[Rfam]
RNA sequence: UAUGUAUCUAGUGGAACAGUUCUGCAUAGACUAGACCAUAGAAACUAGUGUAUGGAAAUGCUUCUGCUACAUGUUUA
Numbered sequence: 001u002a003u004g005u006a007u008c009u010a011g012u013g014g015a016a017c018a019g020u021u022c023u024g025c026a027u028a029g030a031c032u033a034g035a036c037c038a039u040a041g042a043a044a045c046u047a048g049u050g051u052a053u054g055g056a057a058a059u060g061c062u063u064c065u066g067c068u069a070c071a072u073g074u075u076u077a
Stems, first nucleotide, its partner, number of pairs: 001077002004074004009069008017060002020057005026051003031048002

Rfam assigns this 77-nucleotide RNA from Equus asinus to the family "mir-147 microRNA precursor family". The family has 26 seed sequences and 757 matches in Rfam 15.1. The literature on the family includes a 2008 paper in BMC Genomics by Kawaji et al., "Hidden layers of human small RNAs".